[Rfam]
Record summary: The family of this 88-nucleotide sequence from Lederbergia lenta is "c-di-GMP-I riboswitch aptamer".
RNA sequence: ACUGGAUAAAGGUAAAACCAUUGAAAAAUGGUGACACAAAACUAUAGGGGCUAACAUGUACAAUACAUCACGCCAGCCAGUUGCCUAG
Numbered sequence: 001a002c003u004g005g006a007u008a009a010a011g012g013u014a015a016a017a018c019c020a021u022u023g024a025a026a027a028a029u030g031g032u033g034a035c036a037c038a039a040a041a042c043u044a045u046a047g048g049g050g051c052u053a054a055c056a057u058g059u060a061c062a063a064u065a066c067a068u069c070a071c072g073c074c075a076g077c078c079a080g081u082u083g084c085c086u087a088g
Stems, first nucleotide, its partner, number of pairs: 012037002017032006040082004047078002049074003056068004
Record summary: The family's consensus secondary structure is taken from published work.